[Rfam]
RNA sequence: AGGCUGAAUGUGAGAGUUGGAUGGGACCAAAUCUUGAGCUUUCAAUCCUGCAAUGGCACAAGAUUUGGUUUCCUCCAAUGUCUCAUCUUCAACUA
Number, nucleotide and partner (000 for none) at each position: 001a000002g000003g000004c000005u091006g090007a089008a088009u000010g000011u085012g084013a083014g082015a000016g079017u078018u077019g076020g075021a074022u000023g072024g071025g070026a069027c068028c067029a066030a065031a000032u063033c062034u000035u000036g000037a000038g000039c000040u000041u000042u000043c000044a000045a000046u000047c000048c000049u000050g000051c000052a000053a000054u000055g000056g000057c000058a000059c000060a000061a000062g033063a032064u000065u030066u029067g028068g027069u026070u025071u024072c023073c000074u021075c020076c019077a018078a017079u016080g000081u000082c014083u013084c012085a011086u000087c000088u008089u007090c006091a005092a000093c000094u000095a000
RNA: MIR2275 microRNA precursor family